[Rfam]
RNA: tpke11
Organism: Candidatus Fukatsuia symbiotica
RNA sequence: UACGGCUGAAAACCGGCACGGGCGUUGAGGCAACUCUGCGCCCGUGCGCGUAUGUGAAGGGUAGGAAGAAAUAA
Numbered sequence: 001u002a003c004g005g006c007u008g009a010a011a012a013c014c015g016g017c018a019c020g021g022g023c024g025u026u027g028a029g030g031c032a033a034c035u036c037u038g039c040g041c042c043c044g045u046g047c048g049c050g051u052a053u054g055u056g057a058a059g060g061g062u063a064g065g066a067a068g069a070a071a072u073a074a
Stems, first nucleotide, its partner, number of pairs: 003015003016047009027036003